[Rfam]
RNA sequence: CGGUCCCUGCCCCUUCUGAAGCCUUACGUGUCACGUGAGAGAUUAUGUAGGAUCGGGCGGGGACAU
Numbered sequence: 001c002g003g004u005c006c007c008u009g010c011c012c013c014u015u016c017u018g019a020a021g022c023c024u025u026a027c028g029u030g031u032c033a034c035g036u037g038a039g040a041g042a043u044u045a046u047g048u049a050g051g052a053u054c055g056g057g058c059g060g061g062g063a064c065a066u
Stems, first nucleotide, its partner, number of pairs: 003064010015052003023039007

The record is a 66-nucleotide RNA from Nitratireductor basaltis, which matches "DUF3800-VIII RNA" in Rfam. About the family: Bacteroidetes, Cyanobacteria, Firmicutes, Planctomycetes (1 example), Proteobacteria, Tenericutes (1 example). By type it is a small RNA. NCBI's taxonomy places the organism under Bacteria, Pseudomonadati, Pseudomonadota, Phyllobacteriaceae, Nitratireductor.